[Rfam]
RNA sequence: GGAUGUGAGGGCGAUCUGGCUGCGACAUCUGUCACCCCAUUGAUCGCCAGGUUUGAUUCGGCUGAUCUGGCUGGCUAGGCGGGUGUCCCCUUCCUCCCUCACCGCUCCAUGUGCGUCCCUCCCGAAGCUGCGCGCUCGGUCGAAGAGGACGACCUUCCCCGAAUAGAGGAGGACUGGUCUUCGGUCAAGGGUAUACGAGUAGCUGCGCUCCCCUGCUAGAACCUCCAAACAAGCUCUCGAAAAAGCAAGAAACUAAUGGUCUGGCAACAAAACAAAGAGAAGAAAAGCACACAAACAUAACCUCACGUCCAAAUAUGAAUAUAACAGGGAGCAAUAAUCACUAUUC
Numbered sequence: 001g002g003a004u005g006u007g008a009g010g011g012c013g014a015u016c017u018g019g020c021u022g023c024g025a026c027a028u029c030u031g032u033c034a035c036c037c038c039a040u041u042g043a044u045c046g047c048c049a050g051g052u053u054u055g056a057u058u059c060g061g062c063u064g065a066u067c068u069g070g071c072u073g074g075c076u077a078g079g080c081g082g083g084u085g086u087c088c089c090c091u092u093c094c095u096c097c098c099u100c101a102c103c104g105c106u107c108c109a110u111g112u113g114c115g116u117c118c119c120u121c122c123c124g125a126a127g128c129u130g131c132g133c134g135c136u137c138g139g140u141c142g143a144a145g146a147g148g149a150c151g152a153c154c155u156u157c158c159c160c161g162a163a164u165a166g167a168g169g170a171g172g173a174c175u176g177g178u179c180u181u182c183g184g185u186c187a188a189g190g191g192u193a194u195a196c197g198a199g200u201a202g203c204u205g206c207g208c209u210c211c212c213c214u215g216c217u218a219g220a221a222c223c224u225c226c227a228a229a230c231a232a233g234c235u236c237u238c239g240a241a242a243a244a245g246c247a248a249g250a251a252a253c254u255a256a257u258g259g260u261c262u263g264g265c266a267a268c269a270a271a272a273c274a275a276a277g278a279g280a281a282g283a284a285a286a287g288c289a290c291a292c293a294a295a296c297a298u299a300a301c302c303u304c305a306c307g308u309c310c311a312a313a314u315a316u317g318a319a320u321a322u323a324a325c326a327g328g329g330a331g332c333a334a335u336a337a338u339c340a341c342u343a344u345u346c
Base pairs, nucleotide, nucleotide: 001108002107003106005102006101007100008099009098010097011096013093014092018090019089024087025086026085027084028083029082030081031080032079033078035074036073037070038069039068042067043066044065045064046062047061048060116172117171118169119168120167121166122139123138124137125136127135128134140162141161142160147158148157149156202288203287204286208282209281211279213277214276224269230264232262233261317346318345319344320343321342
About this RNA:
Rfam assigns this 346-nucleotide sequence from Rattus norvegicus to the family "7SK RNA". It is annotated as a non-coding RNA gene. Its Rfam clan is "7SK clan". For this family Rfam cites "Structural analyses of the 7SK ribonucleoprotein (RNP), the most abundant human small RNP of unknown function" (Wassarman and Steitz, Mol Cell Biol, 1991). The source organism's lineage runs through Eukaryota, Eumetazoa, Amniota, Glires and Rattus.